A member of the RNA family "Small nucleolar RNA Z105", 64 nucleotides long. It scores 54 bits against the family's covariance model. Its family is annotated with nucleolus and RNA processing in the Gene Ontology. Rfam 15.1 lists 621 matches to the family in 204 species.
RNA sequence: GUGGCAUAAUGAGGAUUGAUUUGUUCUGAAUCUGUGUUGACAAAAAACCUCCUACUCAUUCUGA
Numbered sequence: 001g002u003g004g005c006a007u008a009a010u011g012a013g014g015a016u017u018g019a020u021u022u023g024u025u026c027u028g029a030a031u032c033u034g035u036g037u038u039g040a041c042a043a044a045a046a047a048c049c050u051c052c053u054a055c056u057c058a059u060u061c062u063g064a
Base pairs, nucleotide, nucleotide: 006059007058009056027042028041
A reference for the family is Chen et al. (2003), "The high diversity of snoRNAs in plants: identification and comparative study of 120 snoRNA genes from Oryza sativa", Nucleic Acids Res. Pairs were carried over by alignment from the consensus structure, which was predicted with CMfinder.